[Rfam]
RNA sequence: AACACGCUCCUUAGAUCCACCCCUGGAGGGCAGUCCUGUGCUGGUGCUGUUGUCUCUGAGUGCUGCAGCUCCAGCUUGGAAGCCCUCAACGGCUUUUUGGCUGUACAGUUGGAGGUGCUUGAGUCAUUGGUGUGUGAGAGCAGUCUACCUGCCUCCCAGCACCUCUGCUGCACUGGCAACCCUCAGUUUCCCUGGUGGGACCCUACCAGUGCAGCUAUGCUGGGGGAUGGACAAU
Dot-bracket structure: .(((((((.(((((...((((.((((((((...(((...(((((.((((..(.(.(...).))..)))).)))))..)))..))))).((((((....)))))).....))).)))).))))).....))))))).............(((.(..(.((((.......((((((((.............................))))))))....)))).)..).))).....
This 235-nucleotide RNA sequence from Oncorhynchus mykiss belongs to the Rfam family "Small nucleolar RNA SNORA53". The family's RNA type in Rfam is H/ACA-box small nucleolar RNA. Lineage of the source: Eukaryota > Euteleostomi > Teleostei > Salmonidae > Oncorhynchus. Rfam links the family to the GO terms nucleolus and RNA processing. Pairs were carried over by alignment from the consensus structure, which was predicted with RNAalifold.